The family of this 136-nucleotide RNA from Starkeya sp. ORNL1 is "Alphaproteobacterial sRNA BjrC1505". Rfam classes the family as a small RNA. The pairing is the family consensus, mapped onto this sequence. The source organism's lineage runs through Bacteria, Pseudomonadati, Pseudomonadota, Xanthobacteraceae and Starkeya.
[Rfam]
RNA sequence: AAUGGCUUAACGCCAUAUUAAGCUUUCCGGUCCAUUACUGCGCCUGUCCAAUUUCUGGACGCGAGUGGCUCCUGUCCACUCUGUUUGACGCCUCCCUGUCAUCACCUUCGAGCCGCCUUCGGGCGGCUCUUUUUUG
Dot-bracket structure: ..((((.....)).(...(..(((....)))..))...)).....((((.......))))..((((((.......)))))).....((((......)))).........((((((((....)))))))).......